Alphaproteobacterial ar14: a 122-nucleotide RNA sequence from Ensifer fredii. From the family's description: Smr14C2 was renamed NfeR1 (Nodule Formation Efficiency RNA) highly expressed in salt stress and during the symbiotic interaction on legume roots. It is one of the family's seed sequences. By type it is a small RNA. Rfam 15.1 lists 784 matches to the family in 332 species. On this family, see del Val et al., RNA Biol 2012: "A survey of sRNA families in alpha-proteobacteria".
RNA sequence: CCUCAUCGAAGCGCUGCACCUCCUCCCGCGGCGCCCGAUGCGGGUCGGUUUCACUCCUCCUCCCAGGAACCGGCCAAGUUUGAAGACCCCGACGCCACCUCCUCCCGGCUCGGGGUCUUUUU
Numbered sequence: 001c002c003u004c005a006u007c008g009a010a011g012c013g014c015u016g017c018a019c020c021u022c023c024u025c026c027c028g029c030g031g032c033g034c035c036c037g038a039u040g041c042g043g044g045u046c047g048g049u050u051u052c053a054c055u056c057c058u059c060c061u062c063c064c065a066g067g068a069a070c071c072g073g074c075c076a077a078g079u080u081u082g083a084a085g086a087c088c089c090c091g092a093c094g095c096c097a098c099c100u101c102c103u104c105c106c107g108g109c110u111c112g113g114g115g116u117c118u119u120u121u122u
Base pairs, nucleotide, nucleotide: 007037008036011034012033013032014031015030016029017028043075044074045073046072047071048070049069050068051067052066085117086116087115088114089113090112091111092110094109095108096107